Shown here is a 538-nucleotide part of an RNA from Deinococcus koreensis, a member of the family "Bacterial small subunit ribosomal RNA". It scores 1506 bits against the family's covariance model.
RNA sequence: UUUAUGGAGAGUUUGAUUCUGGCUCAGGGUGAACGCUGGCGGCGUGCUUAAGACAUGCAAGUCGGACGGCGGAGCUUGCUCCGCAGUGGCGCACGGGUGAGUAACGCGUAACUGACCUACCCCCAAGUCGCGGAUAACCAUCCGAAAGGAUGGCUAAUACGUGAUGUGCUGCAUGAUCAUGUUCAUGCAGUAAAGACUGGAUCGUUUGGGGAUGGGGUUGCGUUCCAUCAGCUAGUUGGCGGGGUAAAGGCCCACCAAGGCGACGACGGAUCGCCGGCCUGAGAGGGUGGCCGGCCACAGGGGCACUGAGACACGGGUCCCACUCCUACGGGAGGCAGCAGUUAGGAAUCUUCCACAAUGGGGGCAACCCUGAUGGAGCGACGCCGCGUGAGGGAUGAAGGUUUUCGGAUCGUAAACCUCUGAAUCUGGGACGAAAGACGCGACGAGCGGGAUGACGGUACCAGAGUAAUAGCACCGGCUAACUCCGUGCCAGCAGCCGCGGUAAUACGGAGGGUGCAAGCGUUACCCGGAAUCACUG
Numbered sequence: 001u002u003u004a005u006g007g008a009g010a011g012u013u014u015g016a017u018u019c020u021g022g023c024u025c026a027g028g029g030u031g032a033a034c035g036c037u038g039g040c041g042g043c044g045u046g047c048u049u050a051a052g053a054c055a056u057g058c059a060a061g062u063c064g065g066a067c068g069g070c071g072g073a074g075c076u077u078g079c080u081c082c083g084c085a086g087u088g089g090c091g092c093a094c095g096g097g098u099g100a101g102u103a104a105c106g107c108g109u110a111a112c113u114g115a116c117c118u119a120c121c122c123c124c125a126a127g128u129c130g131c132g133g134a135u136a137a138c139c140a141u142c143c144g145a146a147a148g149g150a151u152g153g154c155u156a157a158u159a160c161g162u163g164a165u166g167u168g169c170u171g172c173a174u175g176a177u178c179a180u181g182u183u184c185a186u187g188c189a190g191u192a193a194a195g196a197c198u199g200g201a202u203c204g205u206u207u208g209g210g211g212a213u214g215g216g217g218u219u220g221c222g223u224u225c226c227a228u229c230a231g232c233u234a235g236u237u238g239g240c241g242g243g244g245u246a247a248a249g250g251c252c253c254a255c256c257a258a259g260g261c262g263a264c265g266a267c268g269g270a271u272c273g274c275c276g277g278c279c280u281g282a283g284a285g286g287g288u289g290g291c292c293g294g295c296c297a298c299a300g301g302g303g304c305a306c307u308g309a310g311a312c313a314c315g316g317g318u319c320c321c322a323c324u325c326c327u328a329c330g331g332g333a334g335g336c337a338g339c340a341g342u343u344a345g346g347a348a349u350c351u352u353c354c355a356c357a358a359u360g361g362g363g364g365c366a367a368c369c370c371u372g373a374u375g376g377a378g379c380g381a382c383g384c385c386g387c388g389u390g391a392g393g394g395a396u397g398a399a400g401g402u403u404u405u406c407g408g409a410u411c412g413u414a415a416a417c418c419u420c421u422g423a424a425u426c427u428g429g430g431a432c433g434a435a436a437g438a439c440g441c442g443a444c445g446a447g448c449g450g451g452a453u454g455a456c457g458g459u460a461c462c463a464g465a466g467u468a469a470u471a472g473c474a475c476c477g478g479c480u481a482a483c484u485c486c487g488u489g490c491c492a493g494c495a496g497c498c499g500c501g502g503u504a505a506u507a508c509g510g511a512g513g514g515u516g517c518a519a520g521c522g523u524u525a526c527c528c529g530g531a532a533u534c535a536c537u538g
Stems, first nucleotide, its partner, number of pairs: 009025005027528004032524006039387006045380002047345001052343003056340003061090003066087002069084006097298003106223008116215002121211007129163004138153006169190008195203002224270003231261003236258004241253003273295004277288004300321005323334004351377001353376003359372005390420004400411004425465005433456001439449003472517005483512005493500002